[Rfam]
RNA sequence: CCGGCACCGGUUCACCUUCCCGCGUGGAGGACCCGGCGGCC
Dot-bracket structure: ..(((.((((....((.(((.....)))))..))))..)))
L31-Actinobacteria ribosomal protein leader: a 41-nucleotide RNA from Saccharomonospora marina.
Its Rfam clan is "Ribosomal Protein L31 Leader clan".
Taxonomically the source falls in Saccharomonospora marina (Bacteria, Bacillati, Pseudonocardiaceae, Saccharomonospora).
The literature on the family includes a 2020 paper in BMC Microbiol by Eckert and Weinberg, "Discovery of 20 novel ribosomal leader candidates in bacteria and archaea".
Rfam classes the family as a cis-regulatory leader.
Rfam's curators put it in the seed alignment.